[Rfam]
RNA sequence: UCCCUGAAUGUAAUCGAGGGAGUUACUCUCGCUGAUUGGCGAGGGCCGGAGCAUGGUCAGCUUCGGCAAAUUUUUAACUUGGAUGCAGAGACCACAUCCUUGAAGC
Number, nucleotide and partner (000 for none) at each position: 001u021002c020003c019004c018005u017006g000007a000008a000009u000010g000011u000012a000013a000014u000015c000016g000017a005018g004019g003020g002021a001022g000023u000024u000025a000026c000027u044028c043029u042030c041031g040032c039033u000034g000035a000036u000037u000038g000039g032040c031041g030042a029043g028044g027045g067046c066047c065048g064049g063050a062051g061052c060053a000054u000055g000056g000057u000058c000059a000060g052061c051062u050063u049064c048065g047066g046067c045068a000069a000070a000071u000072u000073u000074u000075u000076a000077a000078c000079u103080u000081g099082g098083a097084u096085g095086c000087a000088g000089a000090g000091a000092c000093c000094a000095c085096a084097u083098c082099c081100u000101u000102g000103a079104a000105g000106c000

Notes:
engA RNA: a 106-nucleotide RNA sequence from Prevotella sp. CAG:604. Rfam's curators put it in the seed alignment. It is annotated as a cis-regulatory element. The family's consensus secondary structure is taken from published work.